[Rfam]
RNA sequence: AUCUGAAAAAGGCAAACUUCACCGAAAGGGAAGGACGCAAAGCCAUGAGCCUAAGCGAAAGAAUUCGUAUGGUUGUCAGGUUGCCAGG
Numbered sequence: 001a002u003c004u005g006a007a008a009a010a011g012g013c014a015a016a017c018u019u020c021a022c023c024g025a026a027a028g029g030g031a032a033g034g035a036c037g038c039a040a041a042g043c044c045a046u047g048a049g050c051c052u053a054a055g056c057g058a059a060a061g062a063a064u065u066c067g068u069a070u071g072g073u074u075g076u077c078a079g080g081u082u083g084c085c086a087g088g
Base pairs, nucleotide, nucleotide: 012038013037017033018032019031020030022029023028041082042081043080044079046078047077048076049073050072051071056067057066058065059064